[Rfam]
RNA sequence: CCACCCGAAAUGGCUCGUAGGCCAGCCUGACUGGAGGUUGGUGGCGGGGUAGAGCACUUAUUGGGUGUUUAGGGGGAGAAAUCCCUCGGCAUCCUGUAAAACUCCGAACUCGUCACCGCUGUUGAAGGUUGGAGUCAGGGGCGCGGGGUAAGCCUGUGUCCCGAGAGAGGAACAACUCAGACUGGGGUUAAGGUCCCUAAAUGCCGGCUAAGUCUAAGGGGGUCUUUGGCCCUAGACAAUGGGAAGGUGGGCUUAGAAGCAGCCAUCCUUUAAAGAGUUCGUAACAGAUCACCCAUCGAGGUCAAAGGCACCGAAAAUGGAGGGGAAUUAAGCCGGCUACCGAUACCUCAGAGCACCACUUUUGUGUGGUGGUCUUGUAGGGUGGCGUCCCGUUGGGGUUGAAGUGGGGGCGUGAGCUCCUGUGGACCCUGCGGGAAUGAGGAU
Numbered sequence: 001c002c003a004c005c006c007g008a009a010a011u012g013g014c015u016c017g018u019a020g021g022c023c024a025g026c027c028u029g030a031c032u033g034g035a036g037g038u039u040g041g042u043g044g045c046g047g048g049g050u051a052g053a054g055c056a057c058u059u060a061u062u063g064g065g066u067g068u069u070u071a072g073g074g075g076g077a078g079a080a081a082u083c084c085c086u087c088g089g090c091a092u093c094c095u096g097u098a099a100a101a102c103u104c105c106g107a108a109c110u111c112g113u114c115a116c117c118g119c120u121g122u123u124g125a126a127g128g129u130u131g132g133a134g135u136c137a138g139g140g141g142c143g144c145g146g147g148g149u150a151a152g153c154c155u156g157u158g159u160c161c162c163g164a165g166a167g168a169g170g171a172a173c174a175a176c177u178c179a180g181a182c183u184g185g186g187g188u189u190a191a192g193g194u195c196c197c198u199a200a201a202u203g204c205c206g207g208c209u210a211a212g213u214c215u216a217a218g219g220g221g222g223u224c225u226u227u228g229g230c231c232c233u234a235g236a237c238a239a240u241g242g243g244a245a246g247g248u249g250g251g252c253u254u255a256g257a258a259g260c261a262g263c264c265a266u267c268c269u270u271u272a273a274a275g276a277g278u279u280c281g282u283a284a285c286a287g288a289u290c291a292c293c294c295a296u297c298g299a300g301g302u303c304a305a306a307g308g309c310a311c312c313g314a315a316a317a318u319g320g321a322g323g324g325g326a327a328u329u330a331a332g333c334c335g336g337c338u339a340c341c342g343a344u345a346c347c348u349c350a351g352a353g354c355a356c357c358a359c360u361u362u363u364g365u366g367u368g369g370u371g372g373u374c375u376u377g378u379a380g381g382g383u384g385g386c387g388u389c390c391c392g393u394u395g396g397g398g399u400u401g402a403a404g405u406g407g408g409g410g411c412g413u414g415a416g417c418u419c420c421u422g423u424g425g426a427c428c429c430u431g432c433g434g435g436a437a438u439g440a441g442g443a444u
Stems, first nucleotide, its partner, number of pairs: 001385006011024005026134001027132006036120003040117008052105001053103002059098003063094006072087006138162009167178003182351007192341003201338001203337006218312002222309010239296005245269003250264003270274001275290001279288002352375002354371005386439001388436006395429003404423008
RNA: Archaeal large subunit ribosomal RNA, nucleotides 972 to 1415